[Rfam]
RNA sequence: CUCUGGAGAGCGUCUAUUUCGAAUAGACCACCCACGAGGCAAACCUAUUUAACGGGUAAACUUUCAGGUGAAAAGGACAGAG
Numbered sequence: 001c002u003c004u005g006g007a008g009a010g011c012g013u014c015u016a017u018u019u020c021g022a023a024u025a026g027a028c029c030a031c032c033c034a035c036g037a038g039g040c041a042a043a044c045c046u047a048u049u050u051a052a053c054g055g056g057u058a059a060a061c062u063u064u065c066a067g068g069u070g071a072a073a074a075g076g077a078c079a080g081a082g
Stems, first nucleotide, its partner, number of pairs: 001082005012028004030069003034064001037063003044055001